[Rfam]
RNA: mir-3957 microRNA precursor family
Organism: Catagonus wagneri
RNA sequence: UUGGUGGGACCUCGGAGAGUGCAGCUGUGGGCGUCGGUGUCAUGUACACGCACAGCACCUCACUGAGCUCCCUCCAA
Dot-bracket structure: .(((.((((.(((((.(((.(..((((((.(.(((........).)).).)))))).)))).))))).)))).))).